Record summary
A member of the RNA family "Repression of heat shock gene expression (ROSE) element" from Microvirga sp. VF16, 93 nucleotides long. Rfam's curators write: This family represents a 5' UTR cis-regulatory element found in heat shock mRNAs and is known as the ROSE (repression of heat shock gene expression) element. The ROSE element is a negative regulator of heat shock gene expression. The secondary structure is thought to be regulated by temperature. NCBI's taxonomy places the organism under Bacteria, Pseudomonadati, Pseudomonadota, Hyphomicrobiales, Microvirga. A search with the family's covariance model found it, with a score of 58 bits. By type it is an RNA thermoregulator.
RNA sequence: GCCAAGGCCCUCAAUGGCUUGGCGGAUCGGGCGCUGGCAGGUGUCCGGCGCCCUUGUGGUUACGUUGCUCAUUGGAGGAUGUAGCUAUGAGAA
Number, nucleotide and partner (000 for none) at each position: 001g023002c022003c021004a020005a019006g018007g000008c017009c016010c000011u000012c000013a000014a000015u000016g009017g008018c006019u005020u004021g003022g002023c001024g000025g000026a000027u000028c000029g000030g052031g051032c050033g049034c048035u047036g046037g045038c000039a000040g000041g000042u000043g000044u000045c037046c036047g035048g034049c033050g032051c031052c030053c091054u090055u089056g088057u087058g086059g000060u084061u083062a082063c081064g080065u079066u078067g000068c077069u076070c075071a000072u000073u000074g000075g070076a069077g068078g066079a065080u064081g063082u062083a061084g060085c000086u058087a057088u056089g055090a054091g053092a000093a000